[Rfam]
RNA sequence: UGUUGAUGAUGACAAAUCCAAUGGCUUGUUUCUCAAAACAUUUGCAGUUGCCGCCUAAGAGCUCUCCCCUUCGCCGGGCUUGAGAGCUAAUGUUGUUACCAUCCUUUUCCUUGGAUGUCUGAGGCA
Numbered sequence: 001u002g003u004u005g006a007u008g009a010u011g012a013c014a015a016a017u018c019c020a021a022u023g024g025c026u027u028g029u030u031u032c033u034c035a036a037a038a039c040a041u042u043u044g045c046a047g048u049u050g051c052c053g054c055c056u057a058a059g060a061g062c063u064c065u066c067c068c069c070u071u072c073g074c075c076g077g078g079c080u081u082g083a084g085a086g087c088u089a090a091u092g093u094u095g096u097u098a099c100c101a102u103c104c105u106u107u108u109c110c111u112u113g114g115a116u117g118u119c120u121g122a123g124g125c126a
Base pairs, nucleotide, nucleotide: 001126002125003124004123061087062086063085064084065083066082
The family of this 126-nucleotide sequence from Actinidia chinensis is "Small nucleolar RNA SNORD14". The family's consensus secondary structure was predicted with PFOLD. The organism belongs to Actinidia chinensis, within Eukaryota. It scores 73 bits against the family's covariance model. Rfam describes the family as follows. U14 small nucleolar RNA (U14 snoRNA) is required for early cleavages of eukaryotic precursor rRNAs. In yeasts, this molecule possess a stem-loop region (known as the Y-domain) which is essential for function.